[Rfam]
RNA sequence: ACGGACUACUCACCGCACGGCAGGAGCGGGGGAACCAGGUAAGCCGCCGAACCGGCCGUCUUAUUCCAGACACCGGAACGGCUUGGGGUGAAGUCGCACUCGCAAGGGCGCGGCCGGGCACCUCCCCGCCCGAACCCGACAGCUCACCUCGCAGGCGACGGAGAGGACAA
Numbered sequence: 001a002c003g004g005a006c007u008a009c010u011c012a013c014c015g016c017a018c019g020g021c022a023g024g025a026g027c028g029g030g031g032g033a034a035c036c037a038g039g040u041a042a043g044c045c046g047c048c049g050a051a052c053c054g055g056c057c058g059u060c061u062u063a064u065u066c067c068a069g070a071c072a073c074c075g076g077a078a079c080g081g082c083u084u085g086g087g088g089u090g091a092a093g094u095c096g097c098a099c100u101c102g103c104a105a106g107g108g109c110g111c112g113g114c115c116g117g118g119c120a121c122c123u124c125c126c127c128g129c130c131c132g133a134a135c136c137c138g139a140c141a142g143c144u145c146a147c148c149u150c151g152c153a154g155g156c157g158a159c160g161g162a163g164a165g166g167a168c169a170a
Base pairs, nucleotide, nucleotide: 026152027151028150029149030148031147036085037084038083039082040081086137087136088135094113095112096111097110116131117130118129119128
The family of this 170-nucleotide RNA from Streptomyces chromofuscus is "c-di-AMP riboswitch aptamer (ydaO/yuaA leader)". The source organism's lineage runs through Bacteria, Bacillati, Actinomycetes, Streptomycetaceae and Streptomyces.